Rfam assigns this 400-nucleotide RNA from Aminobacter sp. J15 to the family "Bacterial RNase P class A". A search with the family's covariance model found it, with a score of 310 bits.
[Rfam]
RNA sequence: UCAGUCGGCCGGGCGGCCGCGCCGGCGGGAACCGAAAGGUUGCUGGUGAGGAAAGUCCGGGCUCCAGGGAAAUACGGUGCCGGCUAACAGCCGGCGGGGGCGACCCCAGGGAAAGUGCCACAGAAAGCAAACCGCCUUCCGCUCGUCGGAAGGUAAGGGUGAAAGGGUGGGGUAAGAGCCCACCGCGCGACCGGCAACGGAAGCGGCAAGGUAAACCCCACCGGGAGCAAAACCGAAUAGGAACAACACGAGGGGCAACCCUCAGGGCAGUUCCCGCCCCGUUGUUCGGGUUGGUUGCGUGAGGCGUACGGCAACGUCCGCCCAAGAUGAAUGGCCGCCACGUUCCUGUUCCGCAAGGGCAGGGGCCAUACAGAACCCGGCUUACAGGCCGGCUGGCUUU
Numbered sequence: 001u002c003a004g005u006c007g008g009c010c011g012g013g014c015g016g017c018c019g020c021g022c023c024g025g026c027g028g029g030a031a032c033c034g035a036a037a038g039g040u041u042g043c044u045g046g047u048g049a050g051g052a053a054a055g056u057c058c059g060g061g062c063u064c065c066a067g068g069g070a071a072a073u074a075c076g077g078u079g080c081c082g083g084c085u086a087a088c089a090g091c092c093g094g095c096g097g098g099g100g101c102g103a104c105c106c107c108a109g110g111g112a113a114a115g116u117g118c119c120a121c122a123g124a125a126a127g128c129a130a131a132c133c134g135c136c137u138u139c140c141g142c143u144c145g146u147c148g149g150a151a152g153g154u155a156a157g158g159g160u161g162a163a164a165g166g167g168u169g170g171g172g173u174a175a176g177a178g179c180c181c182a183c184c185g186c187g188c189g190a191c192c193g194g195c196a197a198c199g200g201a202a203g204c205g206g207c208a209a210g211g212u213a214a215a216c217c218c219c220a221c222c223g224g225g226a227g228c229a230a231a232a233c234c235g236a237a238u239a240g241g242a243a244c245a246a247c248a249c250g251a252g253g254g255g256c257a258a259c260c261c262u263c264a265g266g267g268c269a270g271u272u273c274c275c276g277c278c279c280c281g282u283u284g285u286u287c288g289g290g291u292u293g294g295u296u297g298c299g300u301g302a303g304g305c306g307u308a309c310g311g312c313a314a315c316g317u318c319c320g321c322c323c324a325a326g327a328u329g330a331a332u333g334g335c336c337g338c339c340a341c342g343u344u345c346c347u348g349u350u351c352c353g354c355a356a357g358g359g360c361a362g363g364g365g366c367c368a369u370a371c372a373g374a375a376c377c378c379g380g381c382u383u384a385c386a387g388g389c390c391g392g393c394u395g396g397c398u399u400u
Base pairs, nucleotide, nucleotide: 001396002395003394004393005392006391007390008389009388010387011385012339013338014337015336016335017334018333020048021047022046023045024044025043026042027041028040053383054382055381057380058379059378060377061376062227063226064225065224072272075223076222077221078220079219080094081093082092083091084090095109096107097106098105099104110218111217115216116215117212118211119210132158133157134154135153136152137151138150139149140148141147166184167183168182169181170180171179185207186205187204188203191200192199193198231296232295233294234293241287242286243285244284245283246282265280266279267278303322304321305320306319308317309316310315
The source organism's lineage runs through Bacteria, Pseudomonadati, Alphaproteobacteria, Hyphomicrobiales and Aminobacter. The base pairs follow the family's consensus structure, which is taken from published work. The family's RNA type in Rfam is ribozyme.